[Rfam]
RNA sequence: UGUCGGAAAACAAAGCGUGAGGGCCUUUUGCAAGACCCCCAACCAAUUUUUGGCGCGCCCUCAGUCGGGGGCGU
Numbered sequence: 001u002g003u004c005g006g007a008a009a010a011c012a013a014a015g016c017g018u019g020a021g022g023g024c025c026u027u028u029u030g031c032a033a034g035a036c037c038c039c040c041a042a043c044c045a046a047u048u049u050u051u052g053g054c055g056c057g058c059c060c061u062c063a064g065u066c067g068g069g070g071g072c073g074u
Base pairs, nucleotide, nucleotide: 021038022037023036025034026033027032056073057072058071059070060069061068062067